[Rfam]
RNA sequence: UGUCGCAUUGGCAAGUUAAUCUCUAGUCAUAGCGAAUAGCUUAUUUCCAUUUUUGACCACGGAUGUACUGGCACUGGUGUCGAGGUAAGCUUAGGAAGGUCGGGUAGCUCCCGGCCUUUUGCUUU
Numbered sequence: 001u002g003u004c005g006c007a008u009u010g011g012c013a014a015g016u017u018a019a020u021c022u023c024u025a026g027u028c029a030u031a032g033c034g035a036a037u038a039g040c041u042u043a044u045u046u047c048c049a050u051u052u053u054u055g056a057c058c059a060c061g062g063a064u065g066u067a068c069u070g071g072c073a074c075u076g077g078u079g080u081c082g083a084g085g086u087a088a089g090c091u092u093a094g095g096a097a098g099g100u101c102g103g104g105u106a107g108c109u110c111c112c113g114g115c116c117u118u119u120u121g122c123u124u125u
Stems, first nucleotide, its partner, number of pairs: 001029002009025003039090007048079004054073002057071003093123001094120010
RNA: Alphaproteobacterial sRNA ar35
Organism: Phyllobacterium endophyticum